[Rfam]
Record summary:
The family of this 137-nucleotide RNA sequence from Urocitellus parryii is "Small nucleolar RNA SNORA48". Rfam's curators write: The snoRNA ACA 48 has been identified to guide pseudouridylation of the residue U3797 in the 28S rRNA subunit. A search with the family's covariance model found it, with a score of 57 bits. Pairs were carried over by alignment from the consensus structure, which was predicted with RNAalifold. Its family is annotated with nucleolus and RNA processing in the Gene Ontology. A reference for the family is Ofengand and Bakin (1997), "Mapping to nucleotide resolution of pseudouridine residues in large subunit ribosomal RNAs from representative eukaryotes, prokaryotes, archaebacteria, mitochondria and chloroplasts", J Mol Biol.

RNA sequence: UGCUCCUGACCUGGGUAGAAUGGCAUCAGUCUAGUUGGUGGUGAUCAUCUCAUUAGAUGGAGCAAAAUGAUCCCUUAUUGAUCCCACCUUUACUUUUGGUCCCUGCCCAUUUCCUGUUUCAUGCCUAGGGCACAUGA
Numbered sequence: 001u002g003c004u005c006c007u008g009a010c011c012u013g014g015g016u017a018g019a020a021u022g023g024c025a026u027c028a029g030u031c032u033a034g035u036u037g038g039u040g041g042u043g044a045u046c047a048u049c050u051c052a053u054u055a056g057a058u059g060g061a062g063c064a065a066a067a068u069g070a071u072c073c074c075u076u077a078u079u080g081a082u083c084c085c086a087c088c089u090u091u092a093c094u095u096u097u098g099g100u101c102c103c104u105g106c107c108c109a110u111u112u113c114c115u116g117u118u119u120c121a122u123g124c125c126u127a128g129g130g131c132a133c134a135u136g137a
Stems, first nucleotide, its partner, number of pairs: 001064006008058001011056004018051002022045001024043004076132001078130002093123001097121003102116001105113001